Record summary:
Rfam assigns this 187-nucleotide RNA sequence from Nyctibius grandis to the family "TUC338".
[Rfam]
RNA sequence: UUGACAGCCCUGGAGACUGAAGUCCUCUAUUUAUCCACAGAACAGAUACAGCGCGGGCAGCGGCGGUGGCAGUGCAAGCUUCCCCCCCACUGCCUCGACCCUGUGCCUGAACGCUGAGUUGGAGGAACCACCUCUAAAGGUGAGAGGGGGUUGUUCAGUCUCCACGCCCAUUCAAUCCUCGGCCUUG
Numbered sequence: 001u002u003g004a005c006a007g008c009c010c011u012g013g014a015g016a017c018u019g020a021a022g023u024c025c026u027c028u029a030u031u032u033a034u035c036c037a038c039a040g041a042a043c044a045g046a047u048a049c050a051g052c053g054c055g056g057g058c059a060g061c062g063g064c065g066g067u068g069g070c071a072g073u074g075c076a077a078g079c080u081u082c083c084c085c086c087c088c089a090c091u092g093c094c095u096c097g098a099c100c101c102u103g104u105g106c107c108u109g110a111a112c113g114c115u116g117a118g119u120u121g122g123a124g125g126a127a128c129c130a131c132c133u134c135u136a137a138a139g140g141u142g143a144g145a146g147g148g149g150g151u152u153g154u155u156c157a158g159u160c161u162c163c164a165c166g167c168c169c170a171u172u173c174a175a176u177c178c179u180c181g182g183c184c185u186u187g
Stems, first nucleotide, its partner, number of pairs: 002174003007168001011164011024149005030144006038116003048108001051106006068094005119137007